[Rfam]
RNA sequence: ACAUUAUCGGGGACAGUGUUUCCCAUAAUGU
Numbered sequence: 001a002c003a004u005u006a007u008c009g010g011g012g013a014c015a016g017u018g019u020u021u022c023c024c025a026u027a028a029u030g031u
Stems, first nucleotide, its partner, number of pairs: 001031007009024005014018001
Iron response element II: a 31-nucleotide sequence from Salvator merianae. The literature on the family includes a 1989 paper in Proc Natl Acad Sci U S A by Koeller et al., "A cytosolic protein binds to structural elements within the iron regulatory region of the transferrin receptor mRNA". Rfam 15.1 lists 5,197 matches to the family in 722 species. Taxonomically the source falls in Salvator (Eukaryota, Eumetazoa, Dipnotetrapodomorpha, Unidentata). Rfam classes the family as a cis-regulatory element. IRE, TFRC, SLC40A1, SDHB, SLC11A2, CDC42BPA, ACO2, ALAS2_H.SAPIENS, CDC14A, EPAS1, ALAS2, qoxD, Hao1, NDUFS1, transferrin, Aconitate.